IS605-orfB-I RNA: a 223-nucleotide RNA sequence. Rfam's curators put it in the seed alignment.
[Rfam]
RNA sequence: GUCCUAUAAAGAUGUAUUAACGCGAGACAGUUGGGCAUAUCCCUUUAGGAUGAAGUUUAUCAGAAGCUUUGAUGAUAAGUCUUGUUGCGUGGCUACGGUCGAAACAAGGUGAGUCAGGGUGGAAUAGGUUAACUGUAAGACCUUGAGCUGGAAAACUCUAAAAUUGACCUAGAGAUACAAAAAAAACACACAGAAAUGUUUUAGUAUCUAUAGUUACGGUAAA
Numbered sequence: 001g002u003c004c005u006a007u008a009a010a011g012a013u014g015u016a017u018u019a020a021c022g023c024g025a026g027a028c029a030g031u032u033g034g035g036c037a038u039a040u041c042c043c044u045u046u047a048g049g050a051u052g053a054a055g056u057u058u059a060u061c062a063g064a065a066g067c068u069u070u071g072a073u074g075a076u077a078a079g080u081c082u083u084g085u086u087g088c089g090u091g092g093c094u095a096c097g098g099u100c101g102a103a104a105c106a107a108g109g110u111g112a113g114u115c116a117g118g119g120u121g122g123a124a125u126a127g128g129u130u131a132a133c134u135g136u137a138a139g140a141c142c143u144u145g146a147g148c149u150g151g152a153a154a155a156c157u158c159u160a161a162a163a164u165u166g167a168c169c170u171a172g173a174g175a176u177a178c179a180a181a182a183a184a185a186a187c188a189c190a191c192a193g194a195a196a197u198g199u200u201u202u203a204g205u206a207u208c209u210a211u212a213g214u215u216a217c218g219g220u221a222a223a
Stems, first nucleotide, its partner, number of pairs: 001051006008044001010040001012038004017034005022028001066120008080109007091100002126143005132220006138164001145158003149154001169213003173209006